[Rfam]
RNA sequence: UUUUUUGUGGCUCGUAUAUUGACCAAUAUACUACAGCAUGAUGUUUGCGCACACCUAUAUACUACGAUUUACCAAAAAUAUACUACACUUGCACCAAAAUAUACUACAACACCAUUUCAAUAUAACUACACUCUCGUAAAAAGGUCCAAAAAUAUAGAAGGAUACGUGUCAAAUACACGUUUUGCAAACUCUACGAUUUC
Numbered sequence: 001u002u003u004u005u006u007g008u009g010g011c012u013c014g015u016a017u018a019u020u021g022a023c024c025a026a027u028a029u030a031c032u033a034c035a036g037c038a039u040g041a042u043g044u045u046u047g048c049g050c051a052c053a054c055c056u057a058u059a060u061a062c063u064a065c066g067a068u069u070u071a072c073c074a075a076a077a078a079u080a081u082a083c084u085a086c087a088c089u090u091g092c093a094c095c096a097a098a099a100u101a102u103a104c105u106a107c108a109a110c111a112c113c114a115u116u117u118c119a120a121u122a123u124a125a126c127u128a129c130a131c132u133c134u135c136g137u138a139a140a141a142a143g144g145u146c147c148a149a150a151a152a153u154a155u156a157g158a159a160g161g162a163u164a165c166g167u168g169u170c171a172a173a174u175a176c177a178c179g180u181u182u183u184g185c186a187a188a189c190u191c192u193a194c195g196a197u198u199u200c
Stems, first nucleotide, its partner, number of pairs: 009191002014031007036054001039051002042047001135179003144170001146168001152163002155160001
Dot-bracket structure: ........((...(((((((....)))))))....(..((.(....)..))..)................................................................................(((......(.(.....((.(....).))....).)......)))..........)).........
Description: This 200-nucleotide sequence from Alphabaculovirus cycundantis belongs to the Rfam family "Baculoviridae Nucleocapsid Assembly essential Element". Rfam classes the family as a cis-regulatory element. A search with the family's covariance model found it, with a score of 178 bits. The literature on the family includes a 2017 paper in J Virol by Huang et al., "The Autographa californica Multiple Nucleopolyhedrovirus ac83 Gene Contains a cis-Acting Element That Is Essential for Nucleocapsid Assembly". Internal cis-element within the ac83 gene.